[Rfam]
RNA: Caenorhabditis snoRNA ceN45
RNA sequence: GGGGGGCACAGAGUUGCAAGUGAUUGAAACUAAAUCAUCUGCGCUAAGUUGUCCCGAAAUGGUGUUUCGGAUUUUAAGAAAAUGAUGCUUGCUUCAUGAAGUGUCGUUGAUAUCUAUUCGAACAAUU
Numbered sequence: 001g002g003g004g005g006g007c008a009c010a011g012a013g014u015u016g017c018a019a020g021u022g023a024u025u026g027a028a029a030c031u032a033a034a035u036c037a038u039c040u041g042c043g044c045u046a047a048g049u050u051g052u053c054c055c056g057a058a059a060u061g062g063u064g065u066u067u068c069g070g071a072u073u074u075u076a077a078g079a080a081a082a083u084g085a086u087g088c089u090u091g092c093u094u095c096a097u098g099a100a101g102u103g104u105c106g107u108u109g110a111u112a113u114c115u116a117u118u119c120g121a122a123c124a125a126u127u
Base pairs, nucleotide, nucleotide: 003055004054005053006052007051008050009048012045013044014043016042017041018040021037022036023035024034025033068120069119070118071117072116076113078111083106084105085104086103087102088101089100090099